[Rfam]
RNA sequence: GAUCACUGAAUUCAUUUGAUGUCUGGAGUGUGAUGUACGUCUAGCACCAUUUGAAUUCAGUCCAUC
Numbered sequence: 001g002a003u004c005a006c007u008g009a010a011u012u013c014a015u016u017u018g019a020u021g022u023c024u025g026g027a028g029u030g031u032g033a034u035g036u037a038c039g040u041c042u043a044g045c046a047c048c049a050u051u052u053g054a055a056u057u058c059a060g061u062c063c064a065u066c
Base pairs, nucleotide, nucleotide: 001066002065003064005061006060007059008058009057010056011055012054013053014052017049018048020046021045024043025042026041027040
Dot-bracket structure: (((.((((((((((..((.((..((((............)))).)).))..))))))))))..)))
The family of this 66-nucleotide RNA sequence from Darwinula stevensoni is "mir-29 microRNA precursor family". Rfam describes the family as follows. This family represents the microRNA (miRNA) precursors mir-29. On this family, see Ambros, Cell 2001: "microRNAs: tiny regulators with great potential". NCBI's taxonomy places the organism under Eukaryota, Opisthokonta, Metazoa, Oligostraca, Darwinula.